[Rfam]
Shown here is a 47-nucleotide RNA from Sphaeramia orbicularis, a member of the family "Histone 3' UTR stem-loop". The literature on the family includes a 2002 paper in RNA by DeJong et al., "NMR structure and dynamics of the RNA-binding site for the histone mRNA stem-loop binding protein".
RNA sequence: ACAACGGCUCUUUUCAGAGCCAACACAUGGACACAGAAGAGCUGCCU
Number, nucleotide and partner (000 for none) at each position: 001a000002c000003a000004a000005c000006g021007g020008c019009u018010c017011u016012u000013u000014u000015c000016a011017g010018a009019g008020c007021c006022a000023a000024c000025a000026c000027a000028u000029g000030g000031a000032c000033a000034c000035a000036g000037a000038a000039g000040a000041g000042c000043u000044g000045c000046c000047u000